[Rfam]
RNA sequence: UGGGCCGGCAAGACGGUCGCGUCGGCUCACCUCGGUGAGCCGCCGAGGAACGUCCGGGCUCCACAGAGCAGGGCGGUGGGUAACACCCACCCGGGGUAACCCGCGAGACAGUGCCACAGAGAACAGACCGCCUCCCGGCGCGGCCGAGAGGUCGCGGCGGGCGGUAAGGGUGAAACGGUGGUGUAAGAGACCACCAGCGACCGGGGUGACCCGGCCGGCUCGGUAAACCUCGCCCGGAGCAAGGUCAGACAGGGAACGUUGAGGCUGCUCGCCGAGUUCCCGGGUAGACCGCUGGAGGGCGGCGGCAACGUCGUCCCGAGAUAGAUGGCCGUCCACGGUGCUUCGGCACCCGGACAGAACCCGGCGUAACAGCCGGCCCAUUCC
Numbered sequence: 001u002g003g004g005c006c007g008g009c010a011a012g013a014c015g016g017u018c019g020c021g022u023c024g025g026c027u028c029a030c031c032u033c034g035g036u037g038a039g040c041c042g043c044c045g046a047g048g049a050a051c052g053u054c055c056g057g058g059c060u061c062c063a064c065a066g067a068g069c070a071g072g073g074c075g076g077u078g079g080g081u082a083a084c085a086c087c088c089a090c091c092c093g094g095g096g097u098a099a100c101c102c103g104c105g106a107g108a109c110a111g112u113g114c115c116a117c118a119g120a121g122a123a124c125a126g127a128c129c130g131c132c133u134c135c136c137g138g139c140g141c142g143g144c145c146g147a148g149a150g151g152u153c154g155c156g157g158c159g160g161g162c163g164g165u166a167a168g169g170g171u172g173a174a175a176c177g178g179u180g181g182u183g184u185a186a187g188a189g190a191c192c193a194c195c196a197g198c199g200a201c202c203g204g205g206g207u208g209a210c211c212c213g214g215c216c217g218g219c220u221c222g223g224u225a226a227a228c229c230u231c232g233c234c235c236g237g238a239g240c241a242a243g244g245u246c247a248g249a250c251a252g253g254g255a256a257c258g259u260u261g262a263g264g265c266u267g268c269u270c271g272c273c274g275a276g277u278u279c280c281c282g283g284g285u286a287g288a289c290c291g292c293u294g295g296a297g298g299g300c301g302g303c304g305g306c307a308a309c310g311u312c313g314u315c316c317c318g319a320g321a322u323a324g325a326u327g328g329c330c331g332u333c334c335a336c337g338g339u340g341c342u343u344c345g346g347c348a349c350c351c352g353g354a355c356a357g358a359a360c361c362c363g364g365c366g367u368a369a370c371a372g373c374c375g376g377c378c379c380a381u382u383c384c
Stems, first nucleotide, its partner, number of pairs: 001380009012333007020045002023042006050367003054364005059239004066270004071235005076090005091105001092103004106230002111228002113224003128169002130165003134161004177195006197219001198217002201214005243290004252281006263273003297316008
Shown here is a 384-nucleotide RNA from Leifsonia poae, a member of the family "Bacterial RNase P class A".
A search with the family's covariance model found it, with a score of 277 bits.
Taxonomically the source falls in Leifsonia (Bacteria, Bacillati, Actinomycetota, Micrococcales).
Ribonuclease P (RNase P) is a ubiquitous endoribonuclease, found in archaea, bacteria and eukarya as well as chloroplasts and mitochondria.
Rfam classes the family as a ribozyme.